[Rfam]
RNA sequence: UUUAGGUGAUGAAUGCCAUUUUUUGGUCCGUGUUUAUGAUAUCAUGUGAUUAUAUUUUGAUUUGAAUGUUCUGAUAAA
Numbered sequence: 001u002u003u004a005g006g007u008g009a010u011g012a013a014u015g016c017c018a019u020u021u022u023u024u025g026g027u028c029c030g031u032g033u034u035u036a037u038g039a040u041a042u043c044a045u046g047u048g049a050u051u052a053u054a055u056u057u058u059g060a061u062u063u064g065a066a067u068g069u070u071c072u073g074a075u076a077a078a
Stems, first nucleotide, its partner, number of pairs: 001078004
The family of this 78-nucleotide RNA from Cimex lectularius is "Small nucleolar RNA SNORD18". A reference for the family is Prislei et al. (1993), "Two different snoRNAs are encoded in introns of amphibian and human L1 ribosomal protein genes", Nucleic Acids Res. Its family is annotated with RNA processing and nucleolus in the Gene Ontology. The family has 16 seed sequences and 2,622 matches in Rfam 15.1.